RNA sequence: AAUUUAUGCUAGGGGAGCGACGAGCUGAGAGGUGUAUGAUAUAUACACUGACCCUCACUACUUGAUCCGGUUAAUACCGGCGGAAGGAAGCAAUCAAGUGGUCCC
Numbered sequence: 001a002a003u004u005u006a007u008g009c010u011a012g013g014g015g016a017g018c019g020a021c022g023a024g025c026u027g028a029g030a031g032g033u034g035u036a037u038g039a040u041a042u043a044u045a046c047a048c049u050g051a052c053c054c055u056c057a058c059u060a061c062u063u064g065a066u067c068c069g070g071u072u073a074a075u076a077c078c079g080g081c082g083g084a085a086g087g088a089a090g091c092a093a094u095c096a097a098g099u100g101g102u103c104c105c
Stems, first nucleotide, its partner, number of pairs: 007092004011055004016049001017025002032048007061086003067080004
The record is a 105-nucleotide sequence from Mobilitalea sibirica, which matches "TPP riboswitch aptamer (THI element)" in Rfam. The match comes from Rfam's covariance-model search (67 bits).